[Rfam]
RNA sequence: UGGCGUCCAUGAUGUUCCGCAACUACCUACAUUGUUUGAUCCUCAUGAAAGCAGCACUGGCUGAGACGCCA
Dot-bracket structure: ((.((((.........................................................)))).))
Rfam assigns this 71-nucleotide RNA sequence to the family "Small nucleolar RNA SNORD34". For this family Rfam cites "Purified box C/D snoRNPs are able to reproduce site-specific 2'-O-methylation of target RNA in vitro" (Galardi et al., Mol Cell Biol, 2002). Rfam describes the family as follows. snoRNA U34 is found in intron 5 of the ribosomal protein L13a gene in humans.